[Rfam]
RNA sequence: CAGGGGAGCGCGGGAUCCUGGGCUGUGUCCCCGGCGCCCUGGGAUGGGGGCCUGCGCUGCUGGCAUCGCGCUCCGGGGCCGCGGCUCCUG
Numbered sequence: 001c002a003g004g005g006g007a008g009c010g011c012g013g014g015a016u017c018c019u020g021g022g023c024u025g026u027g028u029c030c031c032c033g034g035c036g037c038c039c040u041g042g043g044a045u046g047g048g049g050g051c052c053u054g055c056g057c058u059g060c061u062g063g064c065a066u067c068g069c070g071c072u073c074c075g076g077g078g079c080c081g082c083g084g085c086u087c088c089u090g
Stems, first nucleotide, its partner, number of pairs: 001090006010082004017077002020074003024070004029063001031062001032059006041052001043051001045049001
Annotation
Rfam assigns this 90-nucleotide RNA from Canis lupus to the family "mir-8799 microRNA precursor family". It scores 47 bits against the family's covariance model. Its family is annotated with RISC complex and miRNA-mediated post-transcriptional gene silencing in the Gene Ontology. The organism belongs to Canis lupus, within Eukaryota.